[Rfam]
Nucleotides: 101
Stems, first nucleotide, its partner, number of pairs: 010088007019079002022076005028070004035065002038062004043057003
Number, partner (000 for none) and nucleotide at each position: 001000u002000u003000c004000u005000g006000a007000u008000c009000c010088c011087u012086c013085g014084u015083c016082g017000c018000c019079g020078a021000c022076u023075c024074c025073c026072a027000g028070c029069c030068g031067u032000u033000g034000g035065c036064g037000c038062c039061c040060u041059g042000a043057c044056a045055c046000a047000c048000u049000u050000c051000c052000c053000c054000g055045g056044u057043g058000c059041c060040a061039g062038g063000u064036c065035g066000a067031a068030c069029g070028g071000a072026u073025g074024g075023g076022g077000a078020u079019c080000a081000g082016c083015g084014a085013u086012g087011a088010g089000g090000g091000c092000c093000c094000g095000g096000c097000a098000a099000a100000c101000a